[Rfam]
RNA sequence: GUCAACUGCCACCACCCUAAAGGGUAGUAGCUUGUAAAAGCUAGUUGAAUAGCCUAAGUUUACACUACGUUAUGUAAGAAUAUAUAGGUACUUUAGGAUACUUCUCUAGUCCUAAACUCUACGGUAUAUCAUUAAACAUCACUGAUGGCAGGUGAAGUGUGGUAUAUUUAAAACCUUUCAUAACAUUGGCGAAGAGAGCUUAC
Numbered sequence: 001g002u003c004a005a006c007u008g009c010c011a012c013c014a015c016c017c018u019a020a021a022g023g024g025u026a027g028u029a030g031c032u033u034g035u036a037a038a039a040g041c042u043a044g045u046u047g048a049a050u051a052g053c054c055u056a057a058g059u060u061u062a063c064a065c066u067a068c069g070u071u072a073u074g075u076a077a078g079a080a081u082a083u084a085u086a087g088g089u090a091c092u093u094u095a096g097g098a099u100a101c102u103u104c105u106c107u108a109g110u111c112c113u114a115a116a117c118u119c120u121a122c123g124g125u126a127u128a129u130c131a132u133u134a135a136a137c138a139u140c141a142c143u144g145a146u147g148g149c150a151g152g153u154g155a156a157g158u159g160u161g162g163u164a165u166a167u168u169u170a171a172a173a174c175c176u177u178u179c180a181u182a183a184c185a186u187u188g189g190c191g192a193a194g195a196g197a198g199c200u201u202a203c
Stems, first nucleotide, its partner, number of pairs: 001050002003047006010030001013027001016023002031040003052190003056186001057066002069184006076177003088122002092116008102198006124167009136158002139155004143150002